[Rfam]
RNA: permuted transfer-messenger RNA
RNA sequence: GGCGAUAAACGGUAAGUGAAAUAAGUGUUGUGGACCCGGGGGCAGUGCCCGGCGUCUCCACCAGAAAAACCUUUCAAGGUCUUAUGGGGACGAAACAGGCUCGACACGCAUGGUAAAGACUUAUCUUUUGCCCGGCAUUGUACCACCGUCAUCGGGCUAAACUUACAAGUGCCAACGAUAACUCUGAGGUGCUCGCUGUUGCUGCAUAA
Numbered sequence: 001g002g003c004g005a006u007a008a009a010c011g012g013u014a015a016g017u018g019a020a021a022u023a024a025g026u027g028u029u030g031u032g033g034a035c036c037c038g039g040g041g042g043c044a045g046u047g048c049c050c051g052g053c054g055u056c057u058c059c060a061c062c063a064g065a066a067a068a069a070c071c072u073u074u075c076a077a078g079g080u081c082u083u084a085u086g087g088g089g090a091c092g093a094a095a096c097a098g099g100c101u102c103g104a105c106a107c108g109c110a111u112g113g114u115a116a117a118g119a120c121u122u123a124u125c126u127u128u129u130g131c132c133c134g135g136c137a138u139u140g141u142a143c144c145a146c147c148g149u150c151a152u153c154g155g156g157c158u159a160a161a162c163u164u165a166c167a168a169g170u171g172c173c174a175a176c177g178a179u180a181a182c183u184c185u186g187a188g189g190u191g192c193u194c195g196c197u198g199u200u201g202c203u204g205c206a207u208a209a
Base pairs, nucleotide, nucleotide: 001132002131003130004129005128014122015121016120017119026110027109028108030107031106032105036052037051038050039049040048053092054091055090056089057088058087059086133148134147135146